Record summary
A member of the RNA family "glmS glucosamine-6-phosphate activated ribozyme aptamer" from Enterococcus hermanniensis, 142 nucleotides long. NCBI's taxonomy places the organism under Bacteria, Bacillati, Bacillota, Lactobacillales, Enterococcus. Rfam classes the family as a riboswitch. Rfam describes the family as follows. This entry contains a glucosamine-6-phosphate activated ribozyme that is found in the mRNA for GlmS. GlmS is an enzyme that uses fructose-6-phosphate and glutamine to generate glucosamine-6-phosphate.
RNA sequence: ACCAAUAAGAUAGCGCCAGGCCUUAUAUAGGUGACGAGGAUGAAGUUUAUCGAAAGAUUCGGCGGAUGACUUCAGGGUCGCUGUGCUCUAAAGAUUAUUUUAAAAACUUGAUAAAAGAACAAAAAAAUAAUCAGACAGCUCG
Numbered sequence: 001a002c003c004a005a006u007a008a009g010a011u012a013g014c015g016c017c018a019g020g021c022c023u024u025a026u027a028u029a030g031g032u033g034a035c036g037a038g039g040a041u042g043a044a045g046u047u048u049a050u051c052g053a054a055a056g057a058u059u060c061g062g063c064g065g066a067u068g069a070c071u072u073c074a075g076g077g078u079c080g081c082u083g084u085g086c087u088c089u090a091a092a093g094a095u096u097a098u099u100u101u102a103a104a105a106a107c108u109u110g111a112u113a114a115a116a117g118a119a120c121a122a123a124a125a126a127a128u129a130a131u132c133a134g135a136c137a138g139c140u141c142g
Stems, first nucleotide, its partner, number of pairs: 020032004042073005050062004074089005093132007107117003